RNA sequence: GAGGUUUUCUUCGGUAGUUAACUGCAGCCGGUUUUGAACCGUCUCGGCAGUUAACUGCCGAGGGAUAU
Numbered sequence: 001g002a003g004g005u006u007u008u009c010u011u012c013g014g015u016a017g018u019u020a021a022c023u024g025c026a027g028c029c030g031g032u033u034u035u036g037a038a039c040c041g042u043c044u045c046g047g048c049a050g051u052u053a054a055c056u057g058c059c060g061a062g063g064g065a066u067a068u
Stems, first nucleotide, its partner, number of pairs: 008064002011061015
Shown here is a 68-nucleotide RNA sequence from Medicago truncatula, a member of the family "MIR2629 microRNA precursor family". Gene Ontology terms of the family: RISC complex and miRNA-mediated post-transcriptional gene silencing. The base pairs follow the family's consensus structure, which was predicted with RNAalifold.